A member of the RNA family "serC leader" from Afifella marina, 52 nucleotides long. The pairing is the family consensus, mapped onto this sequence. It is annotated as a cis-regulatory leader. For this family Rfam cites "Evidence for a second class of S-adenosylmethionine riboswitches and other regulatory RNA motifs in alpha-proteobacteria" (Corbino et al., Genome Biol, 2005). It scores 65 bits against the family's covariance model.
RNA sequence: CGGCGGGACACUCCGCCCCAACGCGGAGCGCCUAUCUGAAAGGGUAGACUGA
Numbered sequence: 001c002g003g004c005g006g007g008a009c010a011c012u013c014c015g016c017c018c019c020a021a022c023g024c025g026g027a028g029c030g031c032c033u034a035u036c037u038g039a040a041a042g043g044g045u046a047g048a049c050u051g052a
Stems, first nucleotide, its partner, number of pairs: 011028006032047006